Shown here is an 88-nucleotide sequence from Rhipicephalus microplus, a member of the family "mir-5316 microRNA precursor family". The organism belongs to Boophilus, within Eukaryota.

RNA sequence: UUACCACUUGUAGCUUCGCGAAAAUGUUCUGGUUGGCAUUGAUUGAAUAAUUUGUCACUGGGCCUUUUCGACUAGCUUCCUGUGGUUC
Numbered sequence: 001u002u003a004c005c006a007c008u009u010g011u012a013g014c015u016u017c018g019c020g021a022a023a024a025u026g027u028u029c030u031g032g033u034u035g036g037c038a039u040u041g042a043u044u045g046a047a048u049a050a051u052u053u054g055u056c057a058c059u060g061g062g063c064c065u066u067u068u069c070g071a072c073u074a075g076c077u078u079c080c081u082g083u084g085g086u087u088c
Stems, first nucleotide, its partner, number of pairs: 003086005012078002015075002018072001019070006026063002029061005035056004